[Rfam]
RNA sequence: UCAUUCUUGUCGGGGUGCUAGUUUUUGUGUGCUUUAUUUGCGUGCAAAACAGGCUGAGAAAAACCCGUUGACCUGAUCCGGCUAGUACCGGCGUAGGGAACGAGAAGAGUUUGGCG
Numbered sequence: 001u002c003a004u005u006c007u008u009g010u011c012g013g014g015g016u017g018c019u020a021g022u023u024u025u026u027g028u029g030u031g032c033u034u035u036a037u038u039u040g041c042g043u044g045c046a047a048a049a050c051a052g053g054c055u056g057a058g059a060a061a062a063a064c065c066c067g068u069u070g071a072c073c074u075g076a077u078c079c080g081g082c083u084a085g086u087a088c089c090g091g092c093g094u095a096g097g098g099a100a101c102g103a104g105a106a107g108a109g110u111u112u113g114g115c116g
Stems, first nucleotide, its partner, number of pairs: 006104005011067004016061001017054003021050005072097004078091004